[Rfam]
RNA sequence: GAGUCCACCAUAAGUGCAAGUAUUUGAGUGACAAACUCAUAUGCGUAAGGAAACUGAUUGAUACGAAGUCUUUUGAUGGCAGUAUCACCCGGCGUCGACGUUUUAACUGAAAUGACCGAGGUAAAGCACUUAUGAUGGGACCCGAAAGAUGGUGAACUAUGCCUGAAUAGGGUGAAGCCAGAGGAAACUCUGGUGGAGGCUCGUAGCGAUUCUGACGUGCAAAUCGAUCGUCAAAUUUGGGUAUAGGGGCGAAAGACUAAUCGAACCAUCUAGUAGCUGGUU
Numbered sequence: 001g002a003g004u005c006c007a008c009c010a011u012a013a014g015u016g017c018a019a020g021u022a023u024u025u026g027a028g029u030g031a032c033a034a035a036c037u038c039a040u041a042u043g044c045g046u047a048a049g050g051a052a053a054c055u056g057a058u059u060g061a062u063a064c065g066a067a068g069u070c071u072u073u074u075g076a077u078g079g080c081a082g083u084a085u086c087a088c089c090c091g092g093c094g095u096c097g098a099c100g101u102u103u104u105a106a107c108u109g110a111a112a113u114g115a116c117c118g119a120g121g122u123a124a125a126g127c128a129c130u131u132a133u134g135a136u137g138g139g140a141c142c143c144g145a146a147a148g149a150u151g152g153u154g155a156a157c158u159a160u161g162c163c164u165g166a167a168u169a170g171g172g173u174g175a176a177g178c179c180a181g182a183g184g185a186a187a188c189u190c191u192g193g194u195g196g197a198g199g200c201u202c203g204u205a206g207c208g209a210u211u212c213u214g215a216c217g218u219g220c221a222a223a224u225c226g227a228u229c230g231u232c233a234a235a236u237u238u239g240g241g242u243a244u245a246g247g248g249g250c251g252a253a254a255g256a257c258u259a260a261u262c263g264a265a266c267c268a269u270c271u272a273g274u275a276g277c278u279g280g281u282u
Stems, first nucleotide, its partner, number of pairs: 005138003009134009020044003025039005048055002060086005068077002088121002090118003093114003100107001141280002144277001148270006157246011168234001170202004177194007206231004211227002214225002248258002

Eukaryotic large subunit ribosomal RNA: a 282-nucleotide part of an RNA from Mucor lusitanicus.
Pairs were carried over by alignment from the consensus structure, which is taken from published work.
The match comes from Rfam's covariance-model search (3267 bits).